The family of this 121-nucleotide sequence from Sodalis glossinidius is "Enterobacteria greA leader". Its family is annotated with regulation of gene expression in the Gene Ontology.
[Rfam]
RNA sequence: GUCACACUACGGUGCAAACAGGGAUAAGUAAACGAUGACCCACACCGAACUCUGCGGUAAAAUACGUAUCAAAAUGCAAAACUGAGGCUGGCCUGGGAAGCGAUUCCGGGGUCGCUUCCUU
Numbered sequence: 001g002u003c004a005c006a007c008u009a010c011g012g013u014g015c016a017a018a019c020a021g022g023g024a025u026a027a028g029u030a031a032a033c034g035a036u037g038a039c040c041c042a043c044a045c046c047g048a049a050c051u052c053u054g055c056g057g058u059a060a061a062a063u064a065c066g067u068a069u070c071a072a073a074a075u076g077c078a079a080a081a082c083u084g085a086g087g088c089u090g091g092c093c094u095g096g097g098a099a100g101c102g103a104u105u106c107c108g109g110g111g112u113c114g115c116u117u118c119c120u121u
Stems, first nucleotide, its partner, number of pairs: 001039004010034002014029002040047001056070004088114001090113005096107003
Dot-bracket structure: ((((.....((..((............))...)).))))(......)........((((.......)))).................(.(((((.(((......))).)))))).......

The family's consensus secondary structure is taken from published work. The organism belongs to Sodalis glossinidius, within Bacteria.